Shown here is a 47-nucleotide RNA sequence from Mikania micrantha, a member of the family "Plastid-ycf3 group II-D1 intron". Lineage of the source: Eukaryota > Viridiplantae > asterids > Asteroideae > Mikania. A search with the family's covariance model found it, with a score of 60 bits. Gene Ontology term of the family: Group II intron splicing. A reference for the family is Richter et al. (2023), "Retrograde signaling in plants: A critical review focusing on the GUN pathway and beyond", Plant Commun.

RNA sequence: AUUCCUUCUGUCGUGUAUCCUCGAUUAAUGCAGCCUCAGACUCUGUA
Numbered sequence: 001a002u003u004c005c006u007u008c009u010g011u012c013g014u015g016u017a018u019c020c021u022c023g024a025u026u027a028a029u030g031c032a033g034c035c036u037c038a039g040a041c042u043c044u045g046u047a
Stems, first nucleotide, its partner, number of pairs: 010025004032044002